[Rfam]
Plastid-psbA-1 3UTR RNA: a 132-nucleotide RNA from Cephalanthera rubra. Clan: Plastid-psbA 3UTR RNA clan. Rfam's curators write: Plastid psbA-1 is a non-coding RNA (ncRNA) present in plastids. It was identified in inverted repeat sequences in the 3 prime untranslate region (3UTR) of photosystem II quinone-binding protein (psbA). The organism belongs to Cephalanthera, within Eukaryota.

RNA sequence: GUGGAAGCUCCAUCUAUAAAUGGAUAAUACUUUUGUAUUCAUUUAUAUUUAGAUGAAUAUGAUAUGAAUUUUUGAAGGUAGCAAUCCCACCAAUAUCUUCUUAUUAGAAGAAGAUAUUGGUGGGAUUGCUAC
Numbered sequence: 001g002u003g004g005a006a007g008c009u010c011c012a013u014c015u016a017u018a019a020a021u022g023g024a025u026a027a028u029a030c031u032u033u034u035g036u037a038u039u040c041a042u043u044u045a046u047a048u049u050u051a052g053a054u055g056a057a058u059a060u061g062a063u064a065u066g067a068a069u070u071u072u073u074g075a076a077g078g079u080a081g082c083a084a085u086c087c088c089a090c091c092a093a094u095a096u097c098u099u100c101u102u103a104u105u106a107g108a109a110g111a112a113g114a115u116a117u118u119g120g121u122g123g124g125a126u127u128g129c130u131a132c
Stems, first nucleotide, its partner, number of pairs: 009024005078132010089121002093117001095115005
The family's consensus secondary structure was predicted with LocARNA.